The record is a 141-nucleotide RNA sequence from Synaphobranchus kaupii, which matches "Small nucleolar RNA SNORA64/SNORA10 family" in Rfam. From the family's description: This family belongs to the H/ACA class of small nucleolar RNAs (snoRNAs) which act as guides in the the modification of uridines to pseudouridines. On this family, see Narayanan et al., EMBO J 1999: "Nucleolar localization signals of box H/ACA small nucleolar RNAs". Rfam classes the family as an H/ACA-box small nucleolar RNA.
RNA sequence: CCUCUCUCAGCUCUGCUCAACUGUACCUGUGCCGUGGUGCGGUUGUCGUUAAUCGGGAGAGAAAGUAUACUGAGCACAGCAAUGCACGGCAGGAGGGCACCCCCAGUGGUCCUCCUGUUCCCUUACCAGUGUUCAACACGA
Numbered sequence: 001c002c003u004c005u006c007u008c009a010g011c012u013c014u015g016c017u018c019a020a021c022u023g024u025a026c027c028u029g030u031g032c033c034g035u036g037g038u039g040c041g042g043u044u045g046u047c048g049u050u051a052a053u054c055g056g057g058a059g060a061g062a063a064a065g066u067a068u069a070c071u072g073a074g075c076a077c078a079g080c081a082a083u084g085c086a087c088g089g090c091a092g093g094a095g096g097g098c099a100c101c102c103c104c105a106g107u108g109g110u111c112c113u114c115c116u117g118u119u120c121c122c123u124u125a126c127c128a129g130u131g132u133u134c135a136a137c138a139c140g141a
Base pairs, nucleotide, nucleotide: 004065005064007062008061011059012058013057014056019044020043021042022041023040024039025038026037075131076130077129079127081123084120091116092115093114095112096111099110100109101108